[Rfam]
RNA sequence: AUUAAAACUAAGAUGGAGAAAAAAAUAUUCGAUUUGUUAAUUAAAGAGAGUUAGCGUUAGGUGGGAGCUAAUAUUAGCAUGGAUAUAAAAUGAUCACUCCGGAGUUUCCAAGUUGAAAGAGUUUUAUCAAGUAAACAAGGACGUUUACCAGCGAUAUAUGGUUAAGAUUAAUUAUGAGUUUUUGUAAUGAUCUGAGUUAAGAGGCAGUUACUAUGUGUUAACUGCAAAAAAGGUGGUACCGCGGAAGUUUGAUCUUUCGUCCUUAUG
Numbered sequence: 001a002u003u004a005a006a007a008c009u010a011a012g013a014u015g016g017a018g019a020a021a022a023a024a025a026u027a028u029u030c031g032a033u034u035u036g037u038u039a040a041u042u043a044a045a046g047a048g049a050g051u052u053a054g055c056g057u058u059a060g061g062u063g064g065g066a067g068c069u070a071a072u073a074u075u076a077g078c079a080u081g082g083a084u085a086u087a088a089a090a091u092g093a094u095c096a097c098u099c100c101g102g103a104g105u106u107u108c109c110a111a112g113u114u115g116a117a118a119g120a121g122u123u124u125u126a127u128c129a130a131g132u133a134a135a136c137a138a139g140g141a142c143g144u145u146u147a148c149c150a151g152c153g154a155u156a157u158a159u160g161g162u163u164a165a166g167a168u169u170a171a172u173u174a175u176g177a178g179u180u181u182u183u184g185u186a187a188u189g190a191u192c193u194g195a196g197u198u199a200a201g202a203g204g205c206a207g208u209u210a211c212u213a214u215g216u217g218u219u220a221a222c223u224g225c226a227a228a229a230a231a232g233g234u235g236g237u238a239c240c241g242c243g244g245a246a247g248u249u250u251g252a253u254c255u256u257u258c259g260u261c262c263u264u265a266u267g
Stems, first nucleotide, its partner, number of pairs: 007105002015100004026085006039075003050072006108140002112136003142153003204225007230264004241260007
Shown here is a 267-nucleotide RNA sequence from Clostridium pasteurianum, a member of the family "T-box leader". It scores 114 bits against the family's covariance model. Uncharged tRNA acts as the effector for transcription antitermination of genes in the T-box leader family. Its family is annotated with tRNA binding in the Gene Ontology.